About this RNA: The family of this 61-nucleotide RNA sequence from Pristionchus pacificus is "mir-8364 microRNA precursor family".
RNA sequence: UCUUCAUUUGACGUGCUCUCUCACCGGUCAGAGAGGCGAGAGAGUGCAAAAAAUUAAGAGA
Dot-bracket structure: ((((.((.....(((((.((((...............)))).))))).....)).))))..
Numbered sequence: 001u002c003u004u005c006a007u008u009u010g011a012c013g014u015g016c017u018c019u020c021u022c023a024c025c026g027g028u029c030a031g032a033g034a035g036g037c038g039a040g041a042g043a044g045u046g047c048a049a050a051a052a053a054u055u056a057a058g059a060g061a
Stems, first nucleotide, its partner, number of pairs: 001059004006054002013047005019041004
A search with the family's covariance model found it, with a score of 68 bits. The family has 13 seed sequences and 3,320 matches in Rfam 15.1.